The record is a 507-nucleotide RNA from Sinosporangium album, which matches "Saccharopolyspora sRNA 350" in Rfam.
The family's consensus secondary structure was predicted with RNAfold.
[Rfam]
RNA sequence: UUGGCGGUGAAAUCCCACUCGCCGUCGCUCUCGGUCAGGACCUCGUCGCCGAAGUGGUCGCCGUCGGCCAGCACGCCGAGGGUGGUCUCGUUGCCGUAGGCGUUGACGCCGACCCGGCUGACCUUGCCGUGGGCGAUGAGGACGAGCUGGUCGGCCGAGUCGCCCGCCGACGCCAGGGUCUCACCCGCGUCGAACUCCCGCUGCACGAACCGGCCGGCCAGGGCCGCCAGCACGUCGGCGUCGUCGAACUGCCGCAGCGUCGGCAGCUCGCAGAGCUCGGCCGGGAUGACCCGCACGUCGGCGCCGGUCGUGACAAAGGUGAUGCGUCCGUCUCCGACGGCGUAGCUGAGGCGGCGGUUCACACGGUACGUUCCGCCGAUCGCCUCUACCCAGGGGAGCACGCGCAGCAGGUGCCGCGAGGUGAUCUCCUGCAUCUGCGGCACGGAUUUGGUGGUCGUCGCCAGAUUGCGCGCGGCGGCGGUGCCUAGGCUGAGCUGUGACUGCCCG
Numbered sequence: 001u002u003g004g005c006g007g008u009g010a011a012a013u014c015c016c017a018c019u020c021g022c023c024g025u026c027g028c029u030c031u032c033g034g035u036c037a038g039g040a041c042c043u044c045g046u047c048g049c050c051g052a053a054g055u056g057g058u059c060g061c062c063g064u065c066g067g068c069c070a071g072c073a074c075g076c077c078g079a080g081g082g083u084g085g086u087c088u089c090g091u092u093g094c095c096g097u098a099g100g101c102g103u104u105g106a107c108g109c110c111g112a113c114c115c116g117g118c119u120g121a122c123c124u125u126g127c128c129g130u131g132g133g134c135g136a137u138g139a140g141g142a143c144g145a146g147c148u149g150g151u152c153g154g155c156c157g158a159g160u161c162g163c164c165c166g167c168c169g170a171c172g173c174c175a176g177g178g179u180c181u182c183a184c185c186c187g188c189g190u191c192g193a194a195c196u197c198c199c200g201c202u203g204c205a206c207g208a209a210c211c212g213g214c215c216g217g218c219c220a221g222g223g224c225c226g227c228c229a230g231c232a233c234g235u236c237g238g239c240g241u242c243g244u245c246g247a248a249c250u251g252c253c254g255c256a257g258c259g260u261c262g263g264c265a266g267c268u269c270g271c272a273g274a275g276c277u278c279g280g281c282c283g284g285g286a287u288g289a290c291c292c293g294c295a296c297g298u299c300g301g302c303g304c305c306g307g308u309c310g311u312g313a314c315a316a317a318g319g320u321g322a323u324g325c326g327u328c329c330g331u332c333u334c335c336g337a338c339g340g341c342g343u344a345g346c347u348g349a350g351g352c353g354g355c356g357g358u359u360c361a362c363a364c365g366g367u368a369c370g371u372u373c374c375g376c377c378g379a380u381c382g383c384c385u386c387u388a389c390c391c392a393g394g395g396g397a398g399c400a401c402g403c404g405c406a407g408c409a410g411g412u413g414c415c416g417c418g419a420g421g422u423g424a425u426c427u428c429c430u431g432c433a434u435c436u437g438c439g440g441c442a443c444g445g446a447u448u449u450g451g452u453g454g455u456c457g458u459c460g461c462c463a464g465a466u467u468g469c470g471c472g473c474g475g476c477g478g479c480g481g482u483g484c485c486u487a488g489g490c491u492g493a494g495c496u497g498u499g500a501c502u503g504c505c506c507g
Stems, first nucleotide, its partner, number of pairs: 006390004011385001014382001021325002025322005031316001035313003039309004045305001047303006054233002058229001060227002063224002065111004075103001077102002082097005118221003122217002127212001129210002131206001133204003138199001140197001144195001150191001156187002159184002161178001166173002234296002240290006249283001251281004256277003261270002329342004352378006361371002391431007399423003403418003407415001437476002440473001443470002446467001447465006477506002480502003484499001486497003

Its family is annotated with regulation of secondary metabolite biosynthetic process in the Gene Ontology.
For this family Rfam cites "Prediction and characterization of small non-coding RNAs related to secondary metabolites in Saccharopolyspora erythraea" (Liu et al., PLoS One, 2013).
Lineage of the source: Bacteria > Bacillati > Streptosporangiales > Streptosporangiaceae > Sinosporangium.